[Rfam]
RNA: tRNA
RNA sequence: GCGCCCGUAGCUCAAUUGGAUAGAGCGUUUGACUACGGAUCAAAAGGUUAGGGGUUCGACUCCUCUCGGGCGCG
Numbered sequence: 001g002c003g004c005c006c007g008u009a010g011c012u013c014a015a016u017u018g019g020a021u022a023g024a025g026c027g028u029u030u031g032a033c034u035a036c037g038g039a040u041c042a043a044a045a046g047g048u049u050a051g052g053g054g055u056u057c058g059a060c061u062c063c064u065c066u067c068g069g070g071c072g073c074g
Stems, first nucleotide, its partner, number of pairs: 001073007010026004028044005050066005